The family of this 59-nucleotide RNA sequence from Luteimicrobium subarcticum is "msiK RNA".
[Rfam]
RNA sequence: CGUCCUCACCCUCCACGACGGAUCGUCCGGCACGUACCUGCCGGUGAAGGGAAGUGCAC
Numbered sequence: 001c002g003u004c005c006u007c008a009c010c011c012u013c014c015a016c017g018a019c020g021g022a023u024c025g026u027c028c029g030g031c032a033c034g035u036a037c038c039u040g041c042c043g044g045u046g047a048a049g050g051g052a053a054g055u056g057c058a059c
Stems, first nucleotide, its partner, number of pairs: 009051004014046002027044006

It scores 62 bits against the family's covariance model.